[Rfam]
RNA sequence: CGGUGGGGUAGAGGUGCAAAAUUCAAGAGUAAGAUGUGCGAGGAUGACAACGUUGACCGCAUCAGAAAGGGAAUUUUUGCCGAAGCAAUUGACAUGUGUCCGCAUUCCAUUGCUGGGGCUGCUUUGAAGAAGGGCAGCACUGUCAUUAUAAAGGCAAAGCAGGUAUAUGCUUAGAAAAGCCUUAUAAUGGGGAGCUACAGAUCGU
Numbered sequence: 001c002g003g004u005g006g007g008g009u010a011g012a013g014g015u016g017c018a019a020a021a022u023u024c025a026a027g028a029g030u031a032a033g034a035u036g037u038g039c040g041a042g043g044a045u046g047a048c049a050a051c052g053u054u055g056a057c058c059g060c061a062u063c064a065g066a067a068a069g070g071g072a073a074u075u076u077u078u079g080c081c082g083a084a085g086c087a088a089u090u091g092a093c094a095u096g097u098g099u100c101c102g103c104a105u106u107c108c109a110u111u112g113c114u115g116g117g118g119c120u121g122c123u124u125u126g127a128a129g130a131a132g133g134g135c136a137g138c139a140c141u142g143u144c145a146u147u148a149u150a151a152a153g154g155c156a157a158a159g160c161a162g163g164u165a166u167a168u169g170c171u172u173a174g175a176a177a178a179g180c181c182u183u184a185u186a187a188u189g190g191g192g193a194g195c196u197a198c199a200g201a202u203c204g205u
Stems, first nucleotide, its partner, number of pairs: 008198004016080006022073003033063006084114006091107002115141002118138008143190009
Dot-bracket structure: .......((((....(((((((((........((((((...................)))))).......))).))))))...((((((.((.............)).))))))((.((((((((.....)))))))).)).(((((((((..............................)))))))))....)))).......